[Rfam]
RNA sequence: AGAUCCAGCUUCCAGCUUGUUAUCGGAGCCACGAACGAGUCUUACUGACUCAUAUAAGUCUGGGGAAAGUCCCCGAACCCUCAGAUGGAAAGCAGUCGCACUAUAAGUGGUGGUGUUCAAUUCCCUUUCCUAACUGCAGCUGUGAAGGUUAAUCCUGAGUUGUGAGGAAUUAAGGAGUCCGAAAAUGUUCAAUAUAACUCAAGUUAUACAAGCAGAAACGAUGAGUUCUUACAGAAUGGGGCUUAAUGGAAGUGGAUC
Numbered sequence: 001a002g003a004u005c006c007a008g009c010u011u012c013c014a015g016c017u018u019g020u021u022a023u024c025g026g027a028g029c030c031a032c033g034a035a036c037g038a039g040u041c042u043u044a045c046u047g048a049c050u051c052a053u054a055u056a057a058g059u060c061u062g063g064g065g066a067a068a069g070u071c072c073c074c075g076a077a078c079c080c081u082c083a084g085a086u087g088g089a090a091a092g093c094a095g096u097c098g099c100a101c102u103a104u105a106a107g108u109g110g111u112g113g114u115g116u117u118c119a120a121u122u123c124c125c126u127u128u129c130c131u132a133a134c135u136g137c138a139g140c141u142g143u144g145a146a147g148g149u150u151a152a153u154c155c156u157g158a159g160u161u162g163u164g165a166g167g168a169a170u171u172a173a174g175g176a177g178u179c180c181g182a183a184a185a186u187g188u189u190c191a192a193u194a195u196a197a198c199u200c201a202a203g204u205u206a207u208a209c210a211a212g213c214a215g216a217a218a219c220g221a222u223g224a225g226u227u228c229u230u231a232c233a234g235a236a237u238g239g240g241g242c243u244u245a246a247u248g249g250a251a252g253u254g255g256a257u258c
Base pairs, nucleotide, nucleotide: 002258003257004256005255006254008253009252010251011250012249015213016212017211018210019209020208023063024062025061026060027059037051038050039049040048041047067244068243069242071241072240073239074238084097085096086094087093099112100111101110102109103108115186116185117184125175126174127173128172134167135166137162138161139160140159147155148154215228216227217226
A member of the RNA family "RNase MRP" from Trichonephila inaurata, 258 nucleotides long. It is annotated as a ribozyme. The match comes from Rfam's covariance-model search (85 bits). Clan: RNaseP clan.